Overview
RT-5 RNA: a 103-nucleotide RNA from Acetivibrio clariflavus. The family's RNA type in Rfam is small RNA. Pairs were carried over by alignment from the consensus structure, which is taken from published work. Rfam's curators put it in the seed alignment.
RNA sequence: UCGCACCUGCAAGGGGCGCAGCAGAAAUCGUUUGAUAACUGUGCAGGUAGUUGAUUUCUGUAUCGUCUCGUAAACGAAUUAUAAUUCGUUUUAAAGUUUUCUU
Numbered sequence: 001u002c003g004c005a006c007c008u009g010c011a012a013g014g015g016g017c018g019c020a021g022c023a024g025a026a027a028u029c030g031u032u033u034g035a036u037a038a039c040u041g042u043g044c045a046g047g048u049a050g051u052u053g054a055u056u057u058c059u060g061u062a063u064c065g066u067c068u069c070g071u072a073a074a075c076g077a078a079u080u081a082u083a084a085u086u087c088g089u090u091u092u093a094a095a096g097u098u099u100u101c102u103u
Base pairs, nucleotide, nucleotide: 005048006047007046008045009044010043011042013069014068015067017065018064021061022060023059024058025057026056027055028054037052038051039050040049074089075088076087077086078085079084